This 210-nucleotide sequence from Streptomyces sp. SAJ15 belongs to the Rfam family "Actinobacteria sRNA Ms_IGR-5". The match comes from Rfam's covariance-model search (82 bits). The family's RNA type in Rfam is small RNA.
[Rfam]
RNA sequence: ACACGAGAAGGGAGGUGGUUCGGCAGAUGUAUGGCAACCGGACGCGUGAGGUGACUGCGGGCUGACGGCCCGUCGUCGCGCUCUUGCGCGGUACCGGCGGUAGUCGCCGGUCCAAUUCCCAGCAGUCACCCGACCCGCGGGCUCGCCGGUACGUCCGGCCGGCCCCUCGCACCAGCCGGCGCGAGGGACUGAGCUCGCGGGUCGUCUGCG
Numbered sequence: 001a002c003a004c005g006a007g008a009a010g011g012g013a014g015g016u017g018g019u020u021c022g023g024c025a026g027a028u029g030u031a032u033g034g035c036a037a038c039c040g041g042a043c044g045c046g047u048g049a050g051g052u053g054a055c056u057g058c059g060g061g062c063u064g065a066c067g068g069c070c071c072g073u074c075g076u077c078g079c080g081c082u083c084u085u086g087c088g089c090g091g092u093a094c095c096g097g098c099g100g101u102a103g104u105c106g107c108c109g110g111u112c113c114a115a116u117u118c119c120c121a122g123c124a125g126u127c128a129c130c131c132g133a134c135c136c137g138c139g140g141g142c143u144c145g146c147c148g149g150u151a152c153g154u155c156c157g158g159c160c161g162g163c164c165c166c167u168c169g170c171a172c173c174a175g176c177c178g179g180c181g182c183g184a185g186g187g188a189c190u191g192a193g194c195u196c197g198c199g200g201g202u203c204g205u206c207u208g209c210g
Stems, first nucleotide, its partner, number of pairs: 015058005060113002062110003066106001068105001070103001073100005131204013145163006